[Rfam]
RNA sequence: AUCGCUUCUCGGCCUCUUGGCUAAGAUCGUUUGCAGUUUCUGUUCUUAUCAGCUUAAUAUCUGAUAUGGCCCUCCGUGGGUCUUGGAUAUUAGUUGAAUUUUUGCAGGUCGGUGCUCGUAGGAGCUUGCUCCGCGUGCGCCACGGGUCGUCCUGACAUUGCACUGCAGUCUGGUGCGGCCCAGUCCCC
Numbered sequence: 001a002u003c004g005c006u007u008c009u010c011g012g013c014c015u016c017u018u019g020g021c022u023a024a025g026a027u028c029g030u031u032u033g034c035a036g037u038u039u040c041u042g043u044u045c046u047u048a049u050c051a052g053c054u055u056a057a058u059a060u061c062u063g064a065u066a067u068g069g070c071c072c073u074c075c076g077u078g079g080g081u082c083u084u085g086g087a088u089a090u091u092a093g094u095u096g097a098a099u100u101u102u103u104g105c106a107g108g109u110c111g112g113u114g115c116u117c118g119u120a121g122g123a124g125c126u127u128g129c130u131c132c133g134c135g136u137g138c139g140c141c142a143c144g145g146g147u148c149g150u151c152c153u154g155a156c157a158u159u160g161c162a163c164u165g166c167a168g169u170c171u172g173g174u175g176c177g178g179c180c181c182a183g184u185c186c187c188c
Stems, first nucleotide, its partner, number of pairs: 007026003011022004047066006068082005111141005117135002121132004144181006151173002154170003